A member of the RNA family "U2 spliceosomal RNA" from Octopus sinensis, 187 nucleotides long. A search with the family's covariance model found it, with a score of 137 bits. U2 is a small nuclear RNA (snRNA) component of the spliceosome (involved in pre-mRNA splicing). Clan: U2 clan. It is annotated as a spliceosomal small nuclear RNA.
[Rfam]
RNA sequence: AUAUUAUUGUUGGCUAAGAUCAAAGUGUAGUAUCUGUUCUUAUCAGCUUAAUAUCUGAUACGGUGCCUAUUUGGGACUAUCGAUAUUAAACUGAUUUUUAGAACGAGGCGAAGAGUUAGGGGCUUGCUCCGCCUUUGCCACGGGUUGGCCUGGUAUAGCAGUACUUCCAGGAUUCAGCCCAUCUCCC
Numbered sequence: 001a002u003a004u005u006a007u008u009g010u011u012g013g014c015u016a017a018g019a020u021c022a023a024a025g026u027g028u029a030g031u032a033u034c035u036g037u038u039c040u041u042a043u044c045a046g047c048u049u050a051a052u053a054u055c056u057g058a059u060a061c062g063g064u065g066c067c068u069a070u071u072u073g074g075g076a077c078u079a080u081c082g083a084u085a086u087u088a089a090a091c092u093g094a095u096u097u098u099u100a101g102a103a104c105g106a107g108g109c110g111a112a113g114a115g116u117u118a119g120g121g122g123c124u125u126g127c128u129c130c131g132c133c134u135u136u137g138c139c140a141c142g143g144g145u146u147g148g149c150c151u152g153g154u155a156u157a158g159c160a161g162u163a164c165u166u167c168c169a170g171g172a173u174u175c176a177g178c179c180c181a182u183c184u185c186c187c
Stems, first nucleotide, its partner, number of pairs: 041060006062078003066074002107139007119130004142180006149171005